[Rfam]
About this RNA: A member of the RNA family "FMN riboswitch aptamer (RFN element)" from Chengkuizengella marina, 164 nucleotides long. It scores 112 bits against the family's covariance model. The base pairs follow the family's consensus structure, which is taken from published work.
RNA sequence: UAUUUCCUUCGGGGUCGGGUGAAAUUCCCAACCGGCGGUGAUACUUUUUACAGGAAUAAAAAGUUCAGUCCGUGACCCGUGUUAUAUUUGAAUUAUUUCAUAUAACCGGUGGAUCUGGUGCAACUCCAGAGCCGACAGUAAAGUCUGGAUGGGAGAAGGAAGGC
Numbered sequence: 001u002a003u004u005u006c007c008u009u010c011g012g013g014g015u016c017g018g019g020u021g022a023a024a025u026u027c028c029c030a031a032c033c034g035g036c037g038g039u040g041a042u043a044c045u046u047u048u049u050a051c052a053g054g055a056a057u058a059a060a061a062a063g064u065u066c067a068g069u070c071c072g073u074g075a076c077c078c079g080u081g082u083u084a085u086a087u088u089u090g091a092a093u094u095a096u097u098u099c100a101u102a103u104a105a106c107c108g109g110u111g112g113a114u115c116u117g118g119u120g121c122a123a124c125u126c127c128a129g130a131g132c133c134g135a136c137a138g139u140a141a142a143g144u145c146u147g148g149a150u151g152g153g154a155g156a157a158g159g160a161a162g163g164c
Stems, first nucleotide, its partner, number of pairs: 003162008017029003031144002033134002035073004068132002077109002114130005136147003